[Rfam]
RNA sequence: GGGGACCUUCGGGGCCCUGUAACCUAGGGCCGCAAACUGCGGUCCUCAAGCUAGCGGAAGACAGAGA
Numbered sequence: 001g002g003g004g005a006c007c008u009u010c011g012g013g014g015c016c017c018u019g020u021a022a023c024c025u026a027g028g029g030c031c032g033c034a035a036a037c038u039g040c041g042g043u044c045c046u047c048a049a050g051c052u053a054g055c056g057g058a059a060g061a062c063a064g065a066g067a
Stems, first nucleotide, its partner, number of pairs: 001018004006014003027045007
Dot-bracket structure: ((((.(((...)))))))........(((((((.....)))))))......................

Rfam assigns this 67-nucleotide sequence from Pseudorhodobacter antarcticus to the family "L2-Alphaproteobacteria ribosomal protein leader". The organism belongs to Pseudorhodobacter, within Bacteria. Rfam's curators put it in the seed alignment. By type it is a cis-regulatory leader. A reference for the family is Eckert and Weinberg (2020), "Discovery of 20 novel ribosomal leader candidates in bacteria and archaea", BMC Microbiol.